[Rfam]
RNA sequence: CCCGCCACCGUACCUGUCCUGCUUUCCGUGGCUGGUACAGCCAUGGGGUGAGCUGAGAGGAAGCCCCAGCCCAGGAAGCAGCCCUCUUCUGCUGGUGGGGAGGGCUGUGCCGAAAGGCUGGGAACAAGA
Numbered sequence: 001c002c003c004g005c006c007a008c009c010g011u012a013c014c015u016g017u018c019c020u021g022c023u024u025u026c027c028g029u030g031g032c033u034g035g036u037a038c039a040g041c042c043a044u045g046g047g048g049u050g051a052g053c054u055g056a057g058a059g060g061a062a063g064c065c066c067c068a069g070c071c072c073a074g075g076a077a078g079c080a081g082c083c084c085u086c087u088u089c090u091g092c093u094g095g096u097g098g099g100g101a102g103g104g105c106u107g108u109g110c111c112g113a114a115a116g117g118c119u120g121g122g123a124a125c126a127a128g129a
Base pairs, nucleotide, nucleotide: 005048006047008045018035019034021032022030064122065121066120068119070116074111075110079107080106081105082104083103084102087099088098089097
About this RNA: Small nucleolar RNA SNORA65: a 129-nucleotide RNA from Centropus unirufus. NCBI's taxonomy places the organism under Eukaryota, Craniata, Tetrapoda, Saurischia, Centropus. The base pairs follow the family's consensus structure, which was predicted with RNAalifold. The match comes from Rfam's covariance-model search (80 bits). It is annotated as an H/ACA-box small nucleolar RNA. The family is grouped with related families in Rfam's "SNORA65 clan". The literature on the family includes a 2001 paper in EMBO J by Huttenhofer et al., "RNomics: an experimental approach that identifies 201 candidates for novel, small, non-messenger RNAs in mouse". About the family: U65 belongs to the H/ACA class of snoRNAs which are thought to guide the sites of modification of uridines to pseudouridines.